[Rfam]
RNA sequence: GGGGCGGAUUCCGAAAAGCCUGAUGAUAAACAGAGUAGGAA
Numbered sequence: 001g002g003g004g005c006g007g008a009u010u011c012c013g014a015a016a017a018g019c020c021u022g023a024u025g026a027u028a029a030a031c032a033g034a035g036u037a038g039g040a041a
Base pairs, nucleotide, nucleotide: 002021003020004019005018010040011039012038
Dot-bracket structure: .((((....[[[.....))))................]]].
The record is a 41-nucleotide RNA sequence, which matches "DUF805b RNA" in Rfam. Rfam classes the family as a cis-regulatory element.